[Rfam]
This 73-nucleotide RNA from Geotrypetes seraphini belongs to the Rfam family "mir-10 microRNA precursor family".
Rfam links the family to the GO terms RISC complex and miRNA-mediated post-transcriptional gene silencing.
NCBI's taxonomy places the organism under Eukaryota, Opisthokonta, Deuterostomia, Teleostomi, Geotrypetes.
The literature on the family includes a 2001 paper in Science by Lee and Ambros, "An extensive class of small RNAs in Caenorhabditis elegans".
The match comes from Rfam's covariance-model search (56 bits).
Rfam 15.1 lists 3,853 matches to the family in 853 species.

RNA sequence: UGCCAUAAACCCGUAGAUCCGAUCUUGCGGUAUGCUUGAGUCACACAAGCCCGAGUCUGUGGGUCUGUGUCGG
Numbered sequence: 001u002g003c004c005a006u007a008a009a010c011c012c013g014u015a016g017a018u019c020c021g022a023u024c025u026u027g028c029g030g031u032a033u034g035c036u037u038g039a040g041u042c043a044c045a046c047a048a049g050c051c052c053g054a055g056u057c058u059g060u061g062g063g064u065c066u067g068u069g070u071c072g073g
Stems, first nucleotide, its partner, number of pairs: 002071001004069004010063003015058004020053002024049004029044001